[Rfam]
RNA: L31-Actinobacteria ribosomal protein leader
Organism: Mycolicibacterium duvalii
RNA sequence: UCGGUUCCGGUUCACGCCGCAAUCUCUGACAGUUCGCGCAGAGGCGACCCGGGACC
Numbered sequence: 001u002c003g004g005u006u007c008c009g010g011u012u013c014a015c016g017c018c019g020c021a022a023u024c025u026c027u028g029a030c031a032g033u034u035c036g037c038g039c040a041g042a043g044g045c046g047a048c049c050c051g052g053g054a055c056c
Base pairs, nucleotide, nucleotide: 003056004055005054007052008051009050010049015046016045017044018043019039020038